Background:
This 70-nucleotide RNA from Triplophysa rosa belongs to the Rfam family "mir-34 microRNA precursor family". The family's consensus secondary structure was predicted with RNAalifold. The match comes from Rfam's covariance-model search (60 bits). Its family is annotated with RISC complex and miRNA-mediated post-transcriptional gene silencing in the Gene Ontology. On this family, see Lim et al., Science 2003: "Vertebrate microRNA genes". Lineage of the source: Eukaryota > Gnathostomata > Actinopteri > Ostariophysi > Triplophysa. About the family: Human mir-34a was discovered computationally and later experimentally verified. The mature sequence is excised from the 5' arm of the hairpin.
RNA sequence: GGUUUGUAGGCAGUGUUGUUAGCUGAUUGUUUUACGUGAGUUACAAUCACUAACCUACUGCCAACACAAC
Numbered sequence: 001g002g003u004u005u006g007u008a009g010g011c012a013g014u015g016u017u018g019u020u021a022g023c024u025g026a027u028u029g030u031u032u033u034a035c036g037u038g039a040g041u042u043a044c045a046a047u048c049a050c051u052a053a054c055c056u057a058c059u060g061c062c063a064a065c066a067c068a069a070c
Stems, first nucleotide, its partner, number of pairs: 003068001005066002009062002012059004018054005024049007